[Rfam]
RNA sequence: GAGUCUAACGUGUGCGCGAGUCAACGGUGUAUCAUACGAAAAACCACGUUUGGCGCAAUGAAAGUGAACCGUUUACGGUGCGGACGAUGGCCUAGCGACCGAACCCACCGGCGUUCAAAGUCGCGCUGGUCCGCAGUCCGGGGGCGUCUCCGCCGGGUCGGCUUCGGCCGUCCGGGGGCGCACCCUUAGCGCACACGUUGGUACCCGAAAGAUGGUGAACUAUGCCUGGCCAGGAUGAAGUCAGGGGAAACCCUGAUGGAGGUCCGCAGCGAUUCUGACGUGCAAAUCGAUCGUCUGAGCUGGGUAUAGGGGCGAAAGACUAAUCGAACCAUCUAGUAGCUGGUU
Dot-bracket structure: ....(((((((((((((..(((....(((...............)))....)))...((....))...............(((((...((((...................................))))....))))).((((((((....(((...........)))....))).))).))....)))))))))))))..((.(...((((((...((((((((((((.((((...(((((((....)))))))....))))...((((.((.((........))))))))..).))))))))))).((.......))......))))))......).))..
The record is a 345-nucleotide part of an RNA from Aphis glycines, which matches "Eukaryotic large subunit ribosomal RNA" in Rfam. Lineage of the source: Eukaryota > Bilateria > Altocrustacea > Eumetabola > Aphis.